[Rfam]
RNA sequence: GAAAAUAAAGGAGCAAUACCGCCCUCUUGAUAGAACAAGAAGGUGAUUAUUGCUCCUUUAU
Numbered sequence: 001g002a003a004a005a006u007a008a009a010g011g012a013g014c015a016a017u018a019c020c021g022c023c024c025u026c027u028u029g030a031u032a033g034a035a036c037a038a039g040a041a042g043g044u045g046a047u048u049a050u051u052g053c054u055c056c057u058u059u060a061u
Stems, first nucleotide, its partner, number of pairs: 007059012022043001025040005
Dot-bracket structure: ......((((((((((((...(..(((((......)))))..)....))))))))))))..
The record is a 61-nucleotide RNA sequence, which matches "Plastid-psbA-4 3UTR RNA" in Rfam. The family's consensus secondary structure was predicted with LocARNA. Plastid psbA-4 is a non-coding RNA (ncRNA) present in plastids. Its Rfam clan is "Plastid-psbA 3UTR RNA clan".